The record is an 89-nucleotide RNA sequence from Luoshenia tenuis, which matches "c-di-GMP-I riboswitch aptamer" in Rfam. Lineage of the source: Bacteria > Bacillati > Bacillota > Christensenellaceae > Luoshenia. Pairs were carried over by alignment from the consensus structure, which is taken from published work.
[Rfam]
RNA sequence: AUUCUAUAUGAGCAAACCUGCGGAAACGUAGGGACGCAAAGCCACAGGGCCUUCUUCUGUCGUAUCAGAAAUGGCAGCCGGUUGCGAAC
Numbered sequence: 001a002u003u004c005u006a007u008a009u010g011a012g013c014a015a016a017c018c019u020g021c022g023g024a025a026a027c028g029u030a031g032g033g034a035c036g037c038a039a040a041g042c043c044a045c046a047g048g049g050c051c052u053u054c055u056u057c058u059g060u061c062g063u064a065u066c067a068g069a070a071a072u073g074g075c076a077g078c079c080g081g082u083u084g085c086g087a088a089c
Stems, first nucleotide, its partner, number of pairs: 012037002017032006040083004047079002049075003056069004